Description
The record is a 110-nucleotide RNA from Actinospica durhamensis, which matches "SAM (S-adenosyl methionine) riboswitch aptamer" in Rfam. A search with the family's covariance model found it, with a score of 82 bits.

[Rfam]
RNA sequence: GGCAUCGAGUGUCAGUGUGAAGCCCUGGCUGACUGACCGGCAACCCUCGUACGCGGUGGGGUGCUCCAGGUGAAAGCCCGGCGGGAUCGAGGAUCCCGCAAGCAUGCGGC
Number, nucleotide and partner (000 for none) at each position: 001g078002g077003c076004a000005u000006c000007g000008a000009g038010u000011g037012u036013c035014a034015g033016u032017g000018u000019g000020a000021a030022g029023c000024c000025c000026u000027g000028g000029c022030u021031g000032a016033c015034u014035g013036a012037c011038c009039g065040g064041c063042a000043a000044c061045c060046c059047u000048c056049g000050u000051a000052c000053g000054c000055g000056g048057u000058g000059g046060g045061g044062u000063g041064c040065u039066c000067c000068a000069g000070g000071u000072g000073a000074a000075a000076g003077c002078c001079c000080g000081g099082c098083g097084g096085g095086a094087u093088c092089g000090a000091g000092g088093a087094u086095c085096c084097c083098g082099c081100a000101a000102g000103c000104a000105u000106g000107c000108g000109g000110c000